Small nucleolar RNA snoR2/U65: a 159-nucleotide RNA sequence from Vigna radiata. Rfam classes the family as an H/ACA-box small nucleolar RNA. Taxonomically the source falls in Vigna radiata (Eukaryota, Streptophytina, Tracheophyta, Gunneridae). For this family Rfam cites "Localization and processing from a polycistronic precursor of novel snoRNAs in maize" (Shaw et al., J Cell Sci, 1998). Pairs were carried over by alignment from the consensus structure, which was predicted with WAR. It scores 137 bits against the family's covariance model.

RNA sequence: GGUCCGAUGCCACGUCGCUGGUAGCUUCAAUUCAGCGAUGACCAGUGAUGCUAUGAUUGGACCAAAAUCAAAAGUGAGUUUCGUUUGUUUCGCAUCCUGAUAGGAAUCUGUAGAUCUCAUACUUUACGAUCUGCGGAGCCGUUUUGUGCGAUUACAUUC
Numbered sequence: 001g002g003u004c005c006g007a008u009g010c011c012a013c014g015u016c017g018c019u020g021g022u023a024g025c026u027u028c029a030a031u032u033c034a035g036c037g038a039u040g041a042c043c044a045g046u047g048a049u050g051c052u053a054u055g056a057u058u059g060g061a062c063c064a065a066a067a068u069c070a071a072a073a074g075u076g077a078g079u080u081u082c083g084u085u086u087g088u089u090u091c092g093c094a095u096c097c098u099g100a101u102a103g104g105a106a107u108c109u110g111u112a113g114a115u116c117u118c119a120u121a122c123u124u125u126a127c128g129a130u131c132u133g134c135g136g137a138g139c140c141g142u143u144u145u146g147u148g149c150g151a152u153u154a155c156a157u158u159c
Stems, first nucleotide, its partner, number of pairs: 002062007009054001013050006020043003024036003090151005103140002108136003112132005